Shown here is a 116-nucleotide RNA from Yersinia pseudotuberculosis, a member of the family "ManX 5' UTR thermometer". Rfam's curators put it in the seed alignment. By type it is an RNA thermoregulator. NCBI's taxonomy places the organism under Bacteria, Gammaproteobacteria, Yersiniaceae, Yersinia, Yersinia pseudotuberculosis.
RNA sequence: UCAAGUAGCUCAACAGUAUUUUUGGUGAUGAGUUGUUUUUCUGUUAGUGCAAUAACUCAAUUUUGAGUUAACAGAGGGGGUAGCGAGUGAGUAUAGCUAUUAUCAUCGGCACACAU
Number, nucleotide and partner (000 for none) at each position: 001u000002c000003a000004a000005g000006u000007a000008g000009c000010u000011c000012a000013a000014c000015a000016g000017u000018a000019u000020u000021u000022u109023u108024g107025g106026u105027g104028a103029u102030g101031a098032g097033u096034u095035g094036u093037u091038u090039u089040u000041c087042u086043g084044u083045u082046a081047g000048u079049g000050c077051a000052a000053u070054a069055a068056c067057u066058c065059a064060a000061u000062u000063u000064u059065g058066a057067g056068u055069u054070a053071a000072c000073a000074g000075a000076g000077g050078g000079g048080g000081u046082a045083g044084c043085g000086a042087g041088u000089g039090a038091g037092u000093a036094u035095a034096g033097c032098u031099a000100u000101u030102a029103u028104c027105a026106u025107c024108g023109g022110c000111a000112c000113a000114c000115a000116u000